Overview: The record is an 87-nucleotide RNA sequence from Solanum commersonii, which matches "MIR8024 microRNA precursor family" in Rfam.

RNA sequence: UUGGAAGAUUUGAAGACUUUAACUUGGAUACUUGGAGGAAUUUAAAGACUUCAAUAUGCAUACUUGGAGGAUUUGAAGACUUCAACU
Numbered sequence: 001u002u003g004g005a006a007g008a009u010u011u012g013a014a015g016a017c018u019u020u021a022a023c024u025u026g027g028a029u030a031c032u033u034g035g036a037g038g039a040a041u042u043u044a045a046a047g048a049c050u051u052c053a054a055u056a057u058g059c060a061u062a063c064u065u066g067g068a069g070g071a072u073u074u075g076a077a078g079a080c081u082u083c084a085a086c087u
Base pairs, nucleotide, nucleotide: 001085002084003083004082005081009077010076011075012074013073014072017069018068019067020066021065025060026059028057032054033053034052035051036050037049